Rfam assigns this 57-nucleotide sequence from Quercus lobata to the family "Plastid-rps18 3UTR RNA".

RNA sequence: UGCAAGUAUUUAAUGAUUAAGAAGCAACUGCCCCUUGUAUAGAUCGUGUAGUAUUUC
Numbered sequence: 001u002g003c004a005a006g007u008a009u010u011u012a013a014u015g016a017u018u019a020a021g022a023a024g025c026a027a028c029u030g031c032c033c034c035u036u037g038u039a040u041a042g043a044u045c046g047u048g049u050a051g052u053a054u055u056u057c
Stems, first nucleotide, its partner, number of pairs: 018037004024031002

Record summary:
Pairs were carried over by alignment from the consensus structure, which was predicted with LocARNA. For this family Rfam cites "Retrograde signaling in plants: A critical review focusing on the GUN pathway and beyond" (Richter et al., Plant Commun, 2023). Lineage of the source: Eukaryota > Tracheophyta > eudicotyledons > Gunneridae > Quercus. By type it is a cis-regulatory element. Plastid rps18 is a non-coding RNA (ncRNA) present in plastids.